[Rfam]
RNA: mir-160 microRNA precursor family
RNA sequence: AUAUGCCUGGCUCCCUGUAUGCCGCUCGCAUGGCUGCCAACUGACCGGAGCAAGCACAGCUUCCGUUGGCCGCUGCGGCCGGCGUGCGAGGUGCCAAGCAUGG
Numbered sequence: 001a002u003a004u005g006c007c008u009g010g011c012u013c014c015c016u017g018u019a020u021g022c023c024g025c026u027c028g029c030a031u032g033g034c035u036g037c038c039a040a041c042u043g044a045c046c047g048g049a050g051c052a053a054g055c056a057c058a059g060c061u062u063c064c065g066u067u068g069g070c071c072g073c074u075g076c077g078g079c080c081g082g083c084g085u086g087c088g089a090g091g092u093g094c095c096a097a098g099c100a101u102g103g
Base pairs, nucleotide, nucleotide: 002102003101004100005099006098008096009095010094011093013091014090016088017087018086019085020084021083022082023081024080027077028076029075